[Rfam]
RNA: Z30 small nucleolar RNA
RNA sequence: UUGCACUGAUGAGCUGUGAUUGUGUUCUGACCUGGUAUUGUUGUUCCUCCGGGAAGACUUUGACCAGGGCCUGAGGACUUAAUCUUCUCUCUGAGCAC
Numbered sequence: 001u002u003g004c005a006c007u008g009a010u011g012a013g014c015u016g017u018g019a020u021u022g023u024g025u026u027c028u029g030a031c032c033u034g035g036u037a038u039u040g041u042u043g044u045u046c047c048u049c050c051g052g053g054a055a056g057a058c059u060u061u062g063a064c065c066a067g068g069g070c071c072u073g074a075g076g077a078c079u080u081a082a083u084c085u086u087c088u089c090u091c092u093g094a095g096c097a098c
Stems, first nucleotide, its partner, number of pairs: 001097001003096002040058003